[Rfam]
RNA sequence: GGAAGCUUAGUUCAGCGGUAAGAGCAACGGCCUCAUAAGCCGUAAGUCCUGGGUUCGAAUCCCAGAGCUUCCA
Number, nucleotide and partner (000 for none) at each position: 001g072002g071003a070004a069005g068006c067007u066008u000009a000010g025011u024012u023013c022014a000015g000016c000017g000018g000019u000020a000021a000022g013023a012024g011025c010026a000027a043028c042029g041030g040031c039032c000033u000034c000035a000036u000037a000038a000039g031040c030041c029042g028043u027044a000045a000046g000047u000048c000049c065050u064051g063052g062053g061054u000055u000056c000057g000058a000059a000060u000061c053062c052063c051064a050065g049066a007067g006068c005069u004070u003071c002072c001073a000
RNA: tRNA